[Rfam]
RNA sequence: GGAGGCGGAAUGGGCCCGGUGGCCCUCCUGGUCUUCAAAACCAGCGUACCCGCUAAUACCGGGUUGGUGAGUUCGACCCUCACACGCCUCC
Numbered sequence: 001g002g003a004g005g006c007g008g009a010a011u012g013g014g015c016c017c018g019g020u021g022g023c024c025c026u027c028c029u030g031g032u033c034u035u036c037a038a039a040a041c042c043a044g045c046g047u048a049c050c051c052g053c054u055a056a057u058a059c060c061g062g063g064u065u066g067g068u069g070a071g072u073u074c075g076a077c078c079c080u081c082a083c084a085c086g087c088c089u090c091c
Base pairs, nucleotide, nucleotide: 001091002090003089004088005087006086007085008083012025013024014023015022016021028044029043030042031041032040048064049063050062051061068082069081070080071079

Selenocysteine transfer RNA: a 91-nucleotide RNA sequence from Candidatus Methylomirabilis lanthanidiphila.
NCBI's taxonomy places the organism under Bacteria, Bacteria candidate phyla, Methylomirabilota (SeqCode), Methylomirabilaceae (SeqCode), Methylomirabilis (SeqCode).
A reference for the family is Lowe and Eddy (1997), "tRNAscan-SE: a program for improved detection of transfer RNA genes in genomic sequence", Nucleic Acids Res.